Shown here is a 160-nucleotide RNA, a member of the family "FMN riboswitch aptamer (RFN element)". It scores 92 bits against the family's covariance model.
RNA sequence: CGGGGUUCUCAGGGCGGGGUGAAAGUCCCCACCGGCGGUAAUCAUGCUUUGCAUGUAGCCCGCGGGCGCUUGCUUGCUAUUGACCGAUAGCUAAGCGAGGACAGCAGAUCUGGUGCGAUUCCGGAGCCGACGGUUAGAGUCCGGUUAUGAGAAAAGUGAA
Numbered sequence: 001c002g003g004g005g006u007u008c009u010c011a012g013g014g015c016g017g018g019g020u021g022a023a024a025g026u027c028c029c030c031a032c033c034g035g036c037g038g039u040a041a042u043c044a045u046g047c048u049u050u051g052c053a054u055g056u057a058g059c060c061c062g063c064g065g066g067c068g069c070u071u072g073c074u075u076g077c078u079a080u081u082g083a084c085c086g087a088u089a090g091c092u093a094a095g096c097g098a099g100g101a102c103a104g105c106a107g108a109u110c111u112g113g114u115g116c117g118a119u120u121c122c123g124g125a126g127c128c129g130a131c132g133g134u135u136a137g138a139g140u141c142c143g144g145u146u147a148u149g150a151g152a153a154a155a156g157u158g159a160a
Stems, first nucleotide, its partner, number of pairs: 004157001006155002009152002017029003031140002033129002035063004058127002066105002109125005131143003